Rfam assigns this 58-nucleotide RNA to the family "Plastid-ccsA-ndhD-1 3UTR RNA". The family has 488 seed sequences and 1,322 matches in Rfam 15.1.

RNA sequence: AUGAACCGGCGAGGACCAUGUGAAUCAAGUAUUGUAGUGAUUCACAUAGUUCUCACAA
Numbered sequence: 001a002u003g004a005a006c007c008g009g010c011g012a013g014g015a016c017c018a019u020g021u022g023a024a025u026c027a028a029g030u031a032u033u034g035u036a037g038u039g040a041u042u043c044a045c046a047u048a049g050u051u052c053u054c055a056c057a058a
Base pairs, nucleotide, nucleotide: 009056011054012053013052014051015050016049018047019046020045021044022043023042024041025040026039027038
About the family: Plastid-ccsA-ndhD-1 is a non-coding RNA (ncRNA) recognised in plastids.